[Rfam]
RNA: Group II catalytic intron D1-D4-7
Organism: Desulfonema magnum
RNA sequence: CCUGUCGUGUUGCCGACAGUUUCUUACUCCGGCAUGCGUCGCCGGUAACGGCGGGGUGUGAGAGCCCGGAGGACAAUGUAACCCUCAUGCCGCAAGGCGUGGGAGAGAAAACCGUGAGGAAUUCUCAACUCCGGCAGCAUCGCAGGCCGGGUGGGAAC
Numbered sequence: 001c002c003u004g005u006c007g008u009g010u011u012g013c014c015g016a017c018a019g020u021u022u023c024u025u026a027c028u029c030c031g032g033c034a035u036g037c038g039u040c041g042c043c044g045g046u047a048a049c050g051g052c053g054g055g056g057u058g059u060g061a062g063a064g065c066c067c068g069g070a071g072g073a074c075a076a077u078g079u080a081a082c083c084c085u086c087a088u089g090c091c092g093c094a095a096g097g098c099g100u101g102g103g104a105g106a107g108a109a110a111a112c113c114g115u116g117a118g119g120a121a122u123u124c125u126c127a128a129c130u131c132c133g134g135c136a137g138c139a140u141c142g143c144a145g146g147c148c149g150g151g152u153g154g155g156a157a158c
Base pairs, nucleotide, nucleotide: 002019003018004017005016006015007014028070029069030068031067032066033060034059035058036057037056039054040053041052042051043050044049086101087100088099089098090097091096103126104125105124106123112119113118130151131150132149133148134147135146